[Rfam]
RNA sequence: GGGGGCGUAAAGGUUUCGACGGGGGGAGGGAGGCCUGGGCAGCGGGUAGCAGCGGGGGAACUGCUCUAUAACUCCUCCAAAAAAUUAACUGACAACAAUAAUUAUCAGUUGCUCGCAGCCUGAGUGCUGCGCGUUCCGCCCACUCUUGUGUCGUGUGGGGCCGGGGCGUCCUUUAGACACAGCACCUGAACGGACUUAAGCUUUGCGGACCGGCAGGAACUCAUGAAGCUACCAAAGCGUUAGCCUGACGAUCGGCGUGACGCGGCGGGAAUGUUGUAGAUCGCCUGCACCCGGAGACACCUGCGCUGAACUCUUUUCGGACAUGGGUUCGACUCCCAUCGCCUCCACCA
Number, nucleotide and partner (000 for none) at each position: 001g346002g345003g344004g343005g342006c341007g340008u000009a000010a000011a000012g000013g000014u000015u000016u000017c000018g000019a000020c319021g318022g317023g316024g315025g314026g313027a312028g311029g000030g000031a000032g307033g306034c305035c000036u303037g302038g301039g300040c000041a000042g000043c293044g292045g291046g290047u289048a067049g066050c000051a000052g000053c000054g078055g077056g076057g075058g074059a073060a000061c000062u000063g000064c000065u000066c049067u048068a000069u000070a000071a000072c000073u059074c058075c057076u056077c055078c054079a000080a000081a000082a000083a000084a000085u000086u000087a000088a000089c000090u000091g000092a000093c000094a000095a000096c000097a000098a000099u000100a000101a000102u000103u000104a000105u000106c000107a000108g000109u000110u000111g134112c133113u000114c131115g130116c129117a128118g127119c126120c000121u000122g000123a000124g000125u000126g119127c118128u117129g116130c115131g114132c000133g112134u111135u000136c000137c168138g167139c166140c165141c164142a000143c000144u160145c159146u158147u157148g000149u000150g183151u182152c000153g180154u179155g178156u177157g147158g146159g145160g144161c000162c000163g000164g141165g140166g139167c138168g137169u000170c000171c000172u000173u000174u000175a000176g000177a156178c155179a154180c153181a000182g151183c150184a000185c000186c216187u215188g214189a000190a000191c000192g210193g000194a000195c000196u000197u000198a000199a230200g229201c228202u227203u226204u225205g000206c000207g000208g000209a000210c192211c000212g000213g000214c188215a187216g186217g000218a000219a000220c000221u000222c000223a000224u000225g204226a203227a202228g201229c200230u199231a000232c268233c267234a000235a000236a000237g263238c262239g261240u260241u259242a000243g256244c255245c254246u000247g285248a000249c283250g282251a281252u280253c279254g245255g244256c243257g000258u000259g241260a240261c239262g238263c237264g000265g000266c000267g233268g232269g000270a000271a000272u000273g000274u000275u000276g000277u000278a000279g253280a252281u251282c250283g249284c000285c247286u000287g000288c000289a047290c046291c045292c044293g043294g000295a000296g000297a000298c000299a000300c039301c038302u037303g036304c000305g034306c033307u032308g000309a000310a000311c028312u027313c026314u025315u024316u023317u022318c021319g020320g000321a000322c000323a339324u338325g337326g336327g335328u000329u000330c000331g000332a000333c000334u000335c327336c326337c325338a324339u323340c007341g006342c005343c004344u003345c002346c001347a000348c000349c000350a000
transfer-messenger RNA: a 350-nucleotide RNA sequence from Faecalibacterium sp. CAG:82. Bacterial tmRNA, also known as 10Sa RNA or SsrA, is named for its dual tRNA and mRNA-like properties. The family's consensus secondary structure is taken from published work.